[Rfam]
RNA sequence: CGUCCUCUGCUGUGCGCGACAGCCCGCGCCAACAUUUCGCCUUGACCCAUAACCACGGCCCGGGAAUGCCGCUUCAUCGCCGGUGUGCAUGUCCGCCCCGCAGCGGAAAGCCUGAACGCGCUGACGGCCUUCCCACUUGAUCCUCGGGAUCAAGGUCGUUGCGCGGGCAUCGGCAUGGCGGAGGACGC
Numbered sequence: 001c002g003u004c005c006u007c008u009g010c011u012g013u014g015c016g017c018g019a020c021a022g023c024c025c026g027c028g029c030c031a032a033c034a035u036u037u038c039g040c041c042u043u044g045a046c047c048c049a050u051a052a053c054c055a056c057g058g059c060c061c062g063g064g065a066a067u068g069c070c071g072c073u074u075c076a077u078c079g080c081c082g083g084u085g086u087g088c089a090u091g092u093c094c095g096c097c098c099c100g101c102a103g104c105g106g107a108a109a110g111c112c113u114g115a116a117c118g119c120g121c122u123g124a125c126g127g128c129c130u131u132c133c134c135a136c137u138u139g140a141u142c143c144u145c146g147g148g149a150u151c152a153a154g155g156u157c158g159u160u161g162c163g164c165g166g167g168c169a170u171c172g173g174c175a176u177g178g179c180g181g182a183g184g185a186c187g188c
Stems, first nucleotide, its partner, number of pairs: 002186014017172003039156003043152003047148002062134003066130001068128004073124001075123002078120003087111002092107005
A member of the RNA family "6S / SsrS RNA" from Silanimonas sp., 188 nucleotides long. Pairs were carried over by alignment from the consensus structure, which is taken from published work. NCBI's taxonomy places the organism under Bacteria, Pseudomonadati, Gammaproteobacteria, Lysobacteraceae, Silanimonas. A search with the family's covariance model found it, with a score of 100 bits. Rfam classes the family as a non-coding RNA gene. From the family's description: E. coli 6S RNA was the first non coding RNA to be sequenced, but its function was unknown until recently. It consists of 184 nucleotides that fold into an extended hairpin structure with a large single-stranded internal bulge. The 6S RNA specifically associates with RNA polymerase holoenzyme containing the sigma70 specificity factor.